Record summary:
NiCo (Nickel/Cobalt) riboswitch aptamer: a 109-nucleotide sequence from Listeria monocytogenes. The family is grouped with related families in Rfam's "NiCo_riboswitches". Taxonomically the source falls in Listeria monocytogenes (Bacteria, Bacilli, Caryophanales, Listeria). For this family Rfam cites "Bacterial riboswitches cooperatively bind Ni(2+) or Co(2+) ions and control expression of heavy metal transporters" (Furukawa et al., Mol Cell, 2015). Gene Ontology terms of the family: metal ion homeostasis and cobalt ion binding.

RNA sequence: UCAUUGUGAUCUGAACAGGCGGUGAACGUAACACGAGGUUCAUGCAGCUGGGCUGCAAUUAUUUGCGGCAGCAGACUAUGUAUUCUAAGGGCAUAUCUGUGGGACAGUU
Numbered sequence: 001u002c003a004u005u006g007u008g009a010u011c012u013g014a015a016c017a018g019g020c021g022g023u024g025a026a027c028g029u030a031a032c033a034c035g036a037g038g039u040u041c042a043u044g045c046a047g048c049u050g051g052g053c054u055g056c057a058a059u060u061a062u063u064u065g066c067g068g069c070a071g072c073a074g075a076c077u078a079u080g081u082a083u084u085c086u087a088a089g090g091g092c093a094u095a096u097c098u099g100u101g102g103g104a105c106a107g108u109u
Stems, first nucleotide, its partner, number of pairs: 011107003016103001018049003022043005027037001052069007071100005